[Rfam]
Rfam assigns this 79-nucleotide RNA sequence from Tissierella praeacuta to the family "S10-Clostridia ribosomal protein leader".
The family's RNA type in Rfam is cis-regulatory leader.
The organism belongs to Tissierella praeacuta, within Bacteria.
It scores 41 bits against the family's covariance model.
RNA sequence: ACAUUGCGAUGAUGCAAAAGGUGGCUGUUAAAAACAGGGAAUUUUUGCUGAGAAUGUCCGGUUAUAAAUCGGGCGACUG
Numbered sequence: 001a002c003a004u005u006g007c008g009a010u011g012a013u014g015c016a017a018a019a020g021g022u023g024g025c026u027g028u029u030a031a032a033a034a035c036a037g038g039g040a041a042u043u044u045u046u047g048c049u050g051a052g053a054a055u056g057u058c059c060g061g062u063u064a065u066a067a068a069u070c071g072g073g074c075g076a077c078u079g
Base pairs, nucleotide, nucleotide: 014048015047016046018045019044020043021042025037026036027035028034029033056077057076058075061074062073063072